[Rfam]
RNA sequence: GCAGGUAUGGAGACAUGGUUCCGAACACCAUCGCUGGGAAGAUCUUCGGCUCGAUCUGUUCUCUGAGUGGUGUGCUGGUGAUCGCACUGCCUGUUCCCGUCAUCGUCUCCAAC
Numbered sequence: 001g002c003a004g005g006u007a008u009g010g011a012g013a014c015a016u017g018g019u020u021c022c023g024a025a026c027a028c029c030a031u032c033g034c035u036g037g038g039a040a041g042a043u044c045u046u047c048g049g050c051u052c053g054a055u056c057u058g059u060u061c062u063c064u065g066a067g068u069g070g071u072g073u074g075c076u077g078g079u080g081a082u083c084g085c086a087c088u089g090c091c092u093g094u095u096c097c098c099g100u101c102a103u104c105g106u107c108u109c110c111a112a113c
Stems, first nucleotide, its partner, number of pairs: 001113001004110002007106004012101003017096002020093001036076002039073001048062002
The record is a 113-nucleotide RNA from Astyanax mexicanus, which matches "Potassium channel RNA editing signal" in Rfam. A search with the family's covariance model found it, with a score of 83 bits.